[Rfam]
RNA sequence: AAGUCAGGUGGGAUAAUCCUAUUCCUCCUUUUGGAGGGCAGAUAUCAAACAUGAUGAUAGGAGUUCACAUGAUAUGCUAUUAGUGUCCCUGCAUAAUCACAACUUACAAUACCCUGAUUAAUCCUAUCUGAU
Numbered sequence: 001a002a003g004u005c006a007g008g009u010g011g012g013a014u015a016a017u018c019c020u021a022u023u024c025c026u027c028c029u030u031u032u033g034g035a036g037g038g039c040a041g042a043u044a045u046c047a048a049a050c051a052u053g054a055u056g057a058u059a060g061g062a063g064u065u066c067a068c069a070u071g072a073u074a075u076g077c078u079a080u081u082a083g084u085g086u087c088c089c090u091g092c093a094u095a096a097u098c099a100c101a102a103c104u105u106a107c108a109a110u111a112c113c114c115u116g117a118u119u120a121a122u123c124c125u126a127u128c129u130g131a132u
Base pairs, nucleotide, nucleotide: 019041020040023038024037025036026035027034028033071089074086075085076084094120095119096118097117098116099115
Shown here is a 132-nucleotide RNA from Sciurus carolinensis, a member of the family "U8 small nucleolar RNA". The literature on the family includes a 2001 paper in Gene by Peculis et al., "The U8 snoRNA gene family: identification and characterization of distinct, functional U8 genes in Xenopus". The family's RNA type in Rfam is C/D-box small nucleolar RNA.